[Rfam]
RNA sequence: CUUUCCGAGGAGCGUUGCAGCGGCGCCUCGCCGCCAGGCUCGGAUGGGACAACGACGCUCGUGAAGC
Number, nucleotide and partner (000 for none) at each position: 001c000002u046003u000004u044005c043006c042007g041008a040009g000010g000011a000012g000013c000014g000015u000016u000017g000018c000019a000020g000021c033022g032023g031024c030025g029026c000027c000028u000029c025030g024031c023032c022033g021034c000035c000036a000037g000038g000039c000040u008041c007042g006043g005044a004045u000046g002047g000048g000049a000050c000051a000052a000053c000054g000055a000056c000057g000058c000059u000060c000061g000062u000063g000064a000065a000066g000067c000
RNA: SAH (S-adenosyl-L-homocysteine) riboswitch aptamer